[Rfam]
RNA sequence: UUGGUAAACCAGACGAUCGCCGUUUUAAGUUAAAUAUUGAUGCGUUAAGUGUGAUUAUUUAAGACAAAAGGGAGGAAAGUCCGGGCUACAUAAGGCAGCGUGCCAGCUAACGGCUGGGCGGGGUAACCCGACGACAAGUGCAACAGAGAGCAGACCGCCUCAAUUUAAGCUCUACAGCCUAGCUGUAAAGUGGUGAGGUAAGGGUGAAAGGGUGCGGUAAGAGCGCACCGCGUGGCUGGCAACAGUUCAUGGCAAGGUAAACUCCACGCGUAGCAAGACCAAAUAGGUGUCCAUUACUUGUCGCCUGCAGGGGACACGGGUAGGUUGCUUGAGCGUACUGGCAACGGUGCGCCUAGAUGAAUGAUCGUUCACGACAGAACCCGGCUUAUCGGUUUACCAAAAUA
Numbered sequence: 001u002u003g004g005u006a007a008a009c010c011a012g013a014c015g016a017u018c019g020c021c022g023u024u025u026u027a028a029g030u031u032a033a034a035u036a037u038u039g040a041u042g043c044g045u046u047a048a049g050u051g052u053g054a055u056u057a058u059u060u061a062a063g064a065c066a067a068a069a070g071g072g073a074g075g076a077a078a079g080u081c082c083g084g085g086c087u088a089c090a091u092a093a094g095g096c097a098g099c100g101u102g103c104c105a106g107c108u109a110a111c112g113g114c115u116g117g118g119c120g121g122g123g124u125a126a127c128c129c130g131a132c133g134a135c136a137a138g139u140g141c142a143a144c145a146g147a148g149a150g151c152a153g154a155c156c157g158c159c160u161c162a163a164u165u166u167a168a169g170c171u172c173u174a175c176a177g178c179c180u181a182g183c184u185g186u187a188a189a190g191u192g193g194u195g196a197g198g199u200a201a202g203g204g205u206g207a208a209a210g211g212g213u214g215c216g217g218u219a220a221g222a223g224c225g226c227a228c229c230g231c232g233u234g235g236c237u238g239g240c241a242a243c244a245g246u247u248c249a250u251g252g253c254a255a256g257g258u259a260a261a262c263u264c265c266a267c268g269c270g271u272a273g274c275a276a277g278a279c280c281a282a283a284u285a286g287g288u289g290u291c292c293a294u295u296a297c298u299u300g301u302c303g304c305c306u307g308c309a310g311g312g313g314a315c316a317c318g319g320g321u322a323g324g325u326u327g328c329u330u331g332a333g334c335g336u337a338c339u340g341g342c343a344a345c346g347g348u349g350c351g352c353c354u355a356g357a358u359g360a361a362u363g364a365u366c367g368u369u370c371a372c373g374a375c376a377g378a379a380c381c382c383g384g385c386u387u388a389u390c391g392g393u394u395u396a397c398c399a400a401a402a403u404a
Base pairs, nucleotide, nucleotide: 001400002399003398004397005396006395007394008393009392010391011389012369013368014367015366016365017364018363020072021071023069024068025067026066077387078386079385081384082383083382084381085380086273087272088271089270093306094305095304096303098269099268100267101266102265103117104116105115106114107113118132119130120129121128122127133264134263138262139261140258141257155203156202157199158198159197160196161195162194164192211229212228213227214226215225216224230253231251232250233249234248235247236245237244238243277326278325279324280323287317288316289315290314291313292312297311298310299309300308301307333352334351335350336349337348338347339346340345
Bacterial RNase P class A: a 404-nucleotide RNA from Psychrobacter sp. PRwf-1. Rfam classes the family as a ribozyme. Taxonomically the source falls in Psychrobacter (Bacteria, Pseudomonadati, Pseudomonadota, Gammaproteobacteria).